[Rfam]
RNA sequence: AACGUCAUUACUCCGAAGCUGGAUCCCCUAAAGCAUAAGCUAUGGUGACCAGACCAGUGUCGCAAGGCACUCGGGUAUUAUGGGAAACUGUAAUAUCUCCUAUUGGAAAGGAGUCUGUCGACAGGU
Numbered sequence: 001a002a003c004g005u006c007a008u009u010a011c012u013c014c015g016a017a018g019c020u021g022g023a024u025c026c027c028c029u030a031a032a033g034c035a036u037a038a039g040c041u042a043u044g045g046u047g048a049c050c051a052g053a054c055c056a057g058u059g060u061c062g063c064a065a066g067g068c069a070c071u072c073g074g075g076u077a078u079u080a081u082g083g084g085a086a087a088c089u090g091u092a093a094u095a096u097c098u099c100c101u102a103u104u105g106g107a108a109a110g111g112a113g114u115c116u117g118u119c120g121a122c123a124g125g126u
Base pairs, nucleotide, nucleotide: 010114011113012112013111014110019052020051021050022049024048025047027045028044032041033040034039057070058069059068060067061066073098074097075096076095077094078093079092080091081090082089083088099106100105
The record is a 126-nucleotide RNA sequence from Desulfosporosinus cupriresistens, which matches "Molybdenum/Tungsten riboswitch aptamer (Moco RNA motif)" in Rfam. The source organism's lineage runs through Bacteria, Bacillati, Clostridia, Eubacteriales and Desulfosporosinus. The family's consensus secondary structure is taken from published work. A search with the family's covariance model found it, with a score of 50 bits.